This 169-nucleotide RNA sequence from Vibrio viridaestus belongs to the Rfam family "FMN riboswitch aptamer (RFN element)".
NCBI's taxonomy places the organism under Bacteria, Pseudomonadati, Pseudomonadota, Gammaproteobacteria, Vibrio.
It scores 106 bits against the family's covariance model.

RNA sequence: AAUCGACUUCGGGGCAGGGUGCAAUUCCCUACCGGCGGUGAUUUAGAAAUGUUUAUAAAACGAUAUUUUUAACAGCCCGCGAGCGCCUGAUAGCCUUAGCUAGCAGGGUCAGCAGAUCUGGUGAUAUUCCAGAGCCGACGGUGAUAGUCCGGAUGAAAGAAGAUCGAAC
Numbered sequence: 001a002a003u004c005g006a007c008u009u010c011g012g013g014g015c016a017g018g019g020u021g022c023a024a025u026u027c028c029c030u031a032c033c034g035g036c037g038g039u040g041a042u043u044u045a046g047a048a049a050u051g052u053u054u055a056u057a058a059a060a061c062g063a064u065a066u067u068u069u070u071a072a073c074a075g076c077c078c079g080c081g082a083g084c085g086c087c088u089g090a091u092a093g094c095c096u097u098a099g100c101u102a103g104c105a106g107g108g109u110c111a112g113c114a115g116a117u118c119u120g121g122u123g124a125u126a127u128u129c130c131a132g133a134g135c136c137g138a139c140g141g142u143g144a145u146a147g148u149c150c151g152g153a154u155g156a157a158a159g160a161a162g163a164u165c166g167a168a169c
Stems, first nucleotide, its partner, number of pairs: 003167004007162004017029003031148002033137002035080004075135002083113002117133005139151003